[Rfam]
The record is a 146-nucleotide RNA from Acidovorax sp. JS42, which matches "radC RNA" in Rfam. It is one of the family's seed sequences. Lineage of the source: Bacteria > Pseudomonadota > Burkholderiales > Comamonadaceae > Acidovorax.
RNA sequence: UCCUUGCGCCAUGUUCGUCGGCGUUGCCGACACAUGCCCAGGCAGCCGAGACCUUCGAGGCUGCAAGCGCGGGAAACCGUGCUGGUCGUUUCUUCCUACGGACGCUCCGCGUCCAUCCACCCACAAGGGACCUCUCCCUUGCGGGC
Number, nucleotide and partner (000 for none) at each position: 001u000002c000003c000004u000005u000006g000007c000008g000009c000010c000011a035012u034013g033014u000015u000016c000017g031018u030019c029020g028021g027022c026023g000024u000025u000026g022027c021028c020029g019030a018031c017032a000033c013034a012035u011036g000037c000038c000039c000040a000041g000042g064043c063044a062045g061046c060047c059048g000049a000050g087051a086052c085053c084054u000055u000056c000057g000058a000059g047060g046061c045062u044063g043064c042065a000066a083067g082068c081069g080070c079071g078072g077073g000074a000075a000076a000077c072078c071079g070080u069081g068082c067083u066084g053085g052086u051087c050088g000089u000090u000091u000092c000093u000094u000095c000096c000097u000098a000099c000100g000101g000102a000103c000104g000105c000106u000107c000108c000109g000110c000111g000112u000113c000114c000115a000116u000117c145118c144119a000120c000121c000122c000123a000124c141125a140126a139127g138128g137129g136130a135131c000132c000133u000134c000135u130136c129137c128138c127139u126140u125141g124142c000143g000144g118145g117146c000